[Rfam]
The family of this 155-nucleotide sequence from [Actinomadura] parvosata is "c-di-AMP riboswitch aptamer (ydaO/yuaA leader)". NCBI's taxonomy places the organism under Bacteria, Streptosporangiales, Streptosporangiaceae, Nonomuraea, [Actinomadura] parvosata.
RNA sequence: AUCGGCCAGCCGCUCAAUCCCGGCGUGCUCGGGAACCGGGGAACCAUCCACGUGGAGCGAUCCACGUACGGGGUGAAUCCGCCGCAGGUACGGUGGUAGGGCGUCUCCUGGCCCGAAUCCGUCAGCUAACCCGGUAGGCGGUCAAGGAGAAGGGU
Numbered sequence: 001a002u003c004g005g006c007c008a009g010c011c012g013c014u015c016a017a018u019c020c021c022g023g024c025g026u027g028c029u030c031g032g033g034a035a036c037c038g039g040g041g042a043a044c045c046a047u048c049c050a051c052g053u054g055g056a057g058c059g060a061u062c063c064a065c066g067u068a069c070g071g072g073g074u075g076a077a078u079c080c081g082c083c084g085c086a087g088g089u090a091c092g093g094u095g096g097u098a099g100g101g102c103g104u105c106u107c108c109u110g111g112c113c114c115g116a117a118u119c120c121g122u123c124a125g126c127u128a129a130c131c132c133g134g135u136a137g138g139c140g141g142u143c144a145a146g147g148a149g150a151a152g153g154g155u
Base pairs, nucleotide, nucleotide: 011140012139013138014137018034019033020032021031022030023029035135036134037133038132039131040130045070071120072119073118079096080095081094082093083092084091099114100113101112102111